[Rfam]
RNA: c-di-GMP-I riboswitch aptamer
RNA sequence: CAUGUAUAAUCGCAAACCGUUUGAAAAAACGGGACGCAAAGCCAGGAAUCUAACGCCCGCAAGGGCUAUGGUCGUCCGGCCGCCGUG
Numbered sequence: 001c002a003u004g005u006a007u008a009a010u011c012g013c014a015a016a017c018c019g020u021u022u023g024a025a026a027a028a029a030c031g032g033g034a035c036g037c038a039a040a041g042c043c044a045g046g047a048a049u050c051u052a053a054c055g056c057c058c059g060c061a062a063g064g065g066c067u068a069u070g071g072u073c074g075u076c077c078g079g080c081c082g083c084c085g086u087g
Stems, first nucleotide, its partner, number of pairs: 012037002017032006041080003045077003048072003055066004